[Rfam]
RNA sequence: UUGCGGUGGGAUGGCCUAUUGGAACUCUUAUCUUGCCUUUUACCAGAUGAGACCGUGGGCCACCCAGCAAACCGCACUAUACCAAUCUUUGGAAACCCCCUUCACUGAAGAUU
Numbered sequence: 001u002u003g004c005g006g007u008g009g010g011a012u013g014g015c016c017u018a019u020u021g022g023a024a025c026u027c028u029u030a031u032c033u034u035g036c037c038u039u040u041u042a043c044c045a046g047a048u049g050a051g052a053c054c055g056u057g058g059g060c061c062a063c064c065c066a067g068c069a070a071a072c073c074g075c076a077c078u079a080u081a082c083c084a085a086u087c088u089u090u091g092g093a094a095a096c097c098c099c100c101u102u103c104a105c106u107g108a109a110g111a112u113u
Base pairs, nucleotide, nucleotide: 003075004074005073006072009065010064012062013061014060015059016058017057018056026052027051028050029049030048031047032046033045093113095112097110100107
Rfam assigns this 113-nucleotide RNA sequence from Rhizodiscina lignyota to the family "U5 spliceosomal RNA".
The family's consensus secondary structure is taken from published work.
A search with the family's covariance model found it, with a score of 70 bits.
Rfam classes the family as a spliceosomal small nuclear RNA.